[Rfam]
The family of this 81-nucleotide sequence from Ruminococcus champanellensis is "S10-Clostridia ribosomal protein leader".
The literature on the family includes a 2020 paper in BMC Microbiol by Eckert and Weinberg, "Discovery of 20 novel ribosomal leader candidates in bacteria and archaea".
Lineage of the source: Bacteria > Bacillota > Clostridia > Oscillospiraceae > Ruminococcus champanellensis.
By type it is a cis-regulatory leader.
The match comes from Rfam's covariance-model search (40 bits).
RNA sequence: GAUAUGCGAGGAAGCGGAAGGUUGCUGGCGGUAUGUCAGGGAAUUUCCGUGGAGUAUGUCCGAUUUUAAACCGGGCGAAAA
Numbered sequence: 001g002a003u004a005u006g007c008g009a010g011g012a013a014g015c016g017g018a019a020g021g022u023u024g025c026u027g028g029c030g031g032u033a034u035g036u037c038a039g040g041g042a043a044u045u046u047c048c049g050u051g052g053a054g055u056a057u058g059u060c061c062g063a064u065u066u067u068a069a070a071c072c073g074g075g076c077g078a079a080a081a
Stems, first nucleotide, its partner, number of pairs: 014050003019046003025039005057080001059078002064075003